[Rfam]
RNA sequence: AAGCUUCUCUACAAGAAAUCUCAACAAGAAAUCUCAUUUCGCAACUCACCCACAAUCCAAUCAAGAUGUCUCCCUGCUCCUGCAACUGCUGCAAAGGCGAGUGCAACGCUUGCUCCUGCAACAGCUGCAGCGUAAGUUUUU
Numbered sequence: 001a002a003g004c005u006u007c008u009c010u011a012c013a014a015g016a017a018a019u020c021u022c023a024a025c026a027a028g029a030a031a032u033c034u035c036a037u038u039u040c041g042c043a044a045c046u047c048a049c050c051c052a053c054a055a056u057c058c059a060a061u062c063a064a065g066a067u068g069u070c071u072c073c074c075u076g077c078u079c080c081u082g083c084a085a086c087u088g089c090u091g092c093a094a095a096g097g098c099g100a101g102u103g104c105a106a107c108g109c110u111u112g113c114u115c116c117u118g119c120a121a122c123a124g125c126u127g128c129a130g131c132g133u134a135a136g137u138u139u140u141u
Stems, first nucleotide, its partner, number of pairs: 075099004082092003103128003112119002
Rfam assigns this 141-nucleotide sequence from Fusarium sp. NRRL 66182 to the family "A. fumigatus sRNA Afu_254". Pairs were carried over by alignment from the consensus structure, which was predicted with WAR. It scores 76 bits against the family's covariance model. Lineage of the source: Eukaryota > Fungi > Pezizomycotina > Hypocreales > Fusarium.